[Rfam]
RNA sequence: UUUCCGCGGGGUGUCUGAUCUAACCCUAAAUGAGGGUCUCCUCCUGUACUAAGCGUUUGCUGUUUUCUUGUUCCUGGCUUUCAGUAGAUUACAGGAGGACGUUAGCAGGAGCGUUAACAGGGAAAAAAAGCUAGGAAGUCACCCCGACGUGCUCAGCUUCCUCCCUGAAACCCCGGCGACGUUUGCCGUGGUCAGCCCGGCUGCCGCGAAGAGUUAGCCUCUGCUGCUCCGUGGGUUUUUGUCAGUGGGGGAGUCUCUGUGUCUGAGCAGAUUAAAACUGAGUGAGGUGACCCUGCCGGACCUGCUGUGGUCCGGUGAGGAAACCUGUGCUCAAACAUUC
Numbered sequence: 001u002u003u004c005c006g007c008g009g010g011g012u013g014u015c016u017g018a019u020c021u022a023a024c025c026c027u028a029a030a031u032g033a034g035g036g037u038c039u040c041c042u043c044c045u046g047u048a049c050u051a052a053g054c055g056u057u058u059g060c061u062g063u064u065u066u067c068u069u070g071u072u073c074c075u076g077g078c079u080u081u082c083a084g085u086a087g088a089u090u091a092c093a094g095g096a097g098g099a100c101g102u103u104a105g106c107a108g109g110a111g112c113g114u115u116a117a118c119a120g121g122g123a124a125a126a127a128a129a130g131c132u133a134g135g136a137a138g139u140c141a142c143c144c145c146g147a148c149g150u151g152c153u154c155a156g157c158u159u160c161c162u163c164c165c166u167g168a169a170a171c172c173c174c175g176g177c178g179a180c181g182u183u184u185g186c187c188g189u190g191g192u193c194a195g196c197c198c199g200g201c202u203g204c205c206g207c208g209a210a211g212a213g214u215u216a217g218c219c220u221c222u223g224c225u226g227c228u229c230c231g232u233g234g235g236u237u238u239u240u241g242u243c244a245g246u247g248g249g250g251g252a253g254u255c256u257c258u259g260u261g262u263c264u265g266a267g268c269a270g271a272u273u274a275a276a277a278c279u280g281a282g283u284g285a286g287g288u289g290a291c292c293c294u295g296c297c298g299g300a301c302c303u304g305c306u307g308u309g310g311u312c313c314g315g316u317g318a319g320g321a322a323a324c325c326u327g328u329g330c331u332c333a334a335a336c337a338u339u340c
Stems, first nucleotide, its partner, number of pairs: 002147001007146007040098005055089008071135001074134005079128003152267005161251005167239007174231003187208005193203004210222004280332004285326004291320001299312004
RNA: Vertebrate telomerase RNA
Organism: Xiphophorus maculatus